RNA sequence: CCGCCCGUCAUUGGGGAGUAGCUGCGCCGCAGCCCGAUCAGGCCUGCCCUGGCAUCGGGACCGACGGUGGCAAACGUCAACAAACUUGGCCGCACGGCCAUGGCGUUUGCAGUGCAUGCACCUGGCAAGACCUUUGACCACGACCCUGGCGAGAGGCCGGCAGGUGCGUGGUCAAACGCGUUCUCGCGCCGGCCCAAGA
Numbered sequence: 001c002c003g004c005c006c007g008u009c010a011u012u013g014g015g016g017a018g019u020a021g022c023u024g025c026g027c028c029g030c031a032g033c034c035c036g037a038u039c040a041g042g043c044c045u046g047c048c049c050u051g052g053c054a055u056c057g058g059g060a061c062c063g064a065c066g067g068u069g070g071c072a073a074a075c076g077u078c079a080a081c082a083a084a085c086u087u088g089g090c091c092g093c094a095c096g097g098c099c100a101u102g103g104c105g106u107u108u109g110c111a112g113u114g115c116a117u118g119c120a121c122c123u124g125g126c127a128a129g130a131c132c133u134u135u136g137a138c139c140a141c142g143a144c145c146c147u148g149g150c151g152a153g154a155g156g157c158c159g160g161c162a163g164g165u166g167c168g169u170g171g172u173c174a175a176a177c178g179c180g181u182u183c184u185c186g187c188g189c190c191g192g193c194c195c196a197a198g199a
Stems, first nucleotide, its partner, number of pairs: 026068003070110010087100005117198001
The family of this 199-nucleotide sequence from Comamonas serinivorans is "Manganese Mn2+ riboswitch aptamer (yybP-ykoY)". Lineage of the source: Bacteria > Pseudomonadota > Betaproteobacteria > Burkholderiales > Comamonas. This RNA was originally discovered in E. coli during a large scale screen and was named SraF. The family was later found to exist upstream of related families of protein genes in many bacteria, including the the yybP and ykoK genes in B. subtilis. The specific functions of these proteins are unknown, but this structured RNA element may be involved in their genetic regulation as a riboswitch.